Notes: This 69-nucleotide RNA sequence from Virgisporangium ochraceum belongs to the Rfam family "ASpks TB sRNA". A search with the family's covariance model found it, with a score of 62 bits. Rfam classes the family as an antisense RNA. Taxonomically the source falls in Virgisporangium (Bacteria, Actinomycetes, Micromonosporales, Micromonosporaceae).
RNA sequence: CUUGAGCGAGCCCAGCCGCACAGGUUCGGGCCGGUUCUGCCCGUAGGUGGCGAGCACCGCCUGCGCCUC
Numbered sequence: 001c002u003u004g005a006g007c008g009a010g011c012c013c014a015g016c017c018g019c020a021c022a023g024g025u026u027c028g029g030g031c032c033g034g035u036u037c038u039g040c041c042c043g044u045a046g047g048u049g050g051c052g053a054g055c056a057c058c059g060c061c062u063g064c065g066c067c068u069c
Stems, first nucleotide, its partner, number of pairs: 014026004027063001032059002037054002041050003
Dot-bracket structure: .............((((.....))))(....((...((..(((....)))..))...))...)......